[Rfam]
Bacterial small signal recognition particle RNA: a 99-nucleotide RNA from Sphaerotilus mobilis. The family's RNA type in Rfam is non-coding RNA gene. The family's consensus secondary structure is taken from published work. The signal recognition particle (SRP) is a universally conserved ribonucleoprotein involved in the co-translational targeting of proteins to membranes. A search with the family's covariance model found it, with a score of 72 bits.

RNA sequence: GACGGGCCUCCCCGCAUGGGCAGGCGGCCAAACGGGUCAGGUCGGGAACGAAGCAGCCCUAACCGAUUCUGUUCAGUGCCGGGGUUCAGGCUCGUCACC
Numbered sequence: 001g002a003c004g005g006g007c008c009u010c011c012c013c014g015c016a017u018g019g020g021c022a023g024g025c026g027g028c029c030a031a032a033c034g035g036g037u038c039a040g041g042u043c044g045g046g047a048a049c050g051a052a053g054c055a056g057c058c059c060u061a062a063c064c065g066a067u068u069c070u071g072u073u074c075a076g077u078g079c080c081g082g083g084g085u086u087c088a089g090g091c092u093c094g095u096c097a098c099c
Stems, first nucleotide, its partner, number of pairs: 004093005010084005015076001017075006023067001025065003034059004042051003